The family of this 99-nucleotide RNA sequence from Brenneria goodwinii is "Aggregatibacter sRNA 22".
The literature on the family includes a 2017 paper in DNA Res by Oogai et al., "Small RNA repertoires and their intraspecies variation in Aggregatibacter actinomycetemcomitans".
The family's RNA type in Rfam is small RNA.

RNA sequence: UUGCAGGACAAAACGCAUGGCGUUUUGAACAGCGCUUGCGCUGGCCCCGAAGGGGCGAAGCCACAGGCUGAGUCACGCGGCAAGGGAAGGAAUCCCGAU
Numbered sequence: 001u002u003g004c005a006g007g008a009c010a011a012a013a014c015g016c017a018u019g020g021c022g023u024u025u026u027g028a029a030c031a032g033c034g035c036u037u038g039c040g041c042u043g044g045c046c047c048c049g050a051a052g053g054g055g056c057g058a059a060g061c062c063a064c065a066g067g068c069u070g071a072g073u074c075a076c077g078c079g080g081c082a083a084g085g086g087a088a089g090g091a092a093u094c095c096c097g098a099u
Base pairs, nucleotide, nucleotide: 009027010026011025012024013023014022015021016020030043031042032041033040034039044056045055046054047053048052060081061080062079085096086095088093